[Rfam]
RNA sequence: AUAAUUUGUCUGGGGAGCUGUUACGGCUGAGAGGGACGAAAGAUGUCCGACCCAUGAACCUGAUUCGGAUAAUUCCGGCGUAGGAAGAUAGAUUUGCUUUGUA
Numbered sequence: 001a002u003a004a005u006u007u008g009u010c011u012g013g014g015g016a017g018c019u020g021u022u023a024c025g026g027c028u029g030a031g032a033g034g035g036a037c038g039a040a041a042g043a044u045g046u047c048c049g050a051c052c053c054a055u056g057a058a059c060c061u062g063a064u065u066c067g068g069a070u071a072a073u074u075c076c077g078g079c080g081u082a083g084g085a086a087g088a089u090a091g092a093u094u095u096g097c098u099u100u101g102u103a
Stems, first nucleotide, its partner, number of pairs: 006091005011054004017027004034048005059084004065078004
RNA: TPP riboswitch aptamer (THI element)
Organism: Roseburia sp. CAG:380